[Rfam]
RNA sequence: UGGGUAUGAGUAUUACAUCAGGUACUGGUGUAAUAUUCAGACAACCAGUACUUGUGUUAUACUUACGCUCA
Numbered sequence: 001u002g003g004g005u006a007u008g009a010g011u012a013u014u015a016c017a018u019c020a021g022g023u024a025c026u027g028g029u030g031u032a033a034u035a036u037u038c039a040g041a042c043a044a045c046c047a048g049u050a051c052u053u054g055u056g057u058u059a060u061a062c063u064u065a066c067g068c069u070c071a
Stems, first nucleotide, its partner, number of pairs: 001071005009063004015057004021052009
Shown here is a 71-nucleotide RNA sequence from Eufriesea mexicana, a member of the family "mir-12 microRNA precursor family". The base pairs follow the family's consensus structure, which was predicted with RNAalifold. Lineage of the source: Eukaryota > Panarthropoda > Eumetabola > Apidae > Eufriesea. Rfam links the family to the GO terms RISC complex and miRNA-mediated post-transcriptional gene silencing.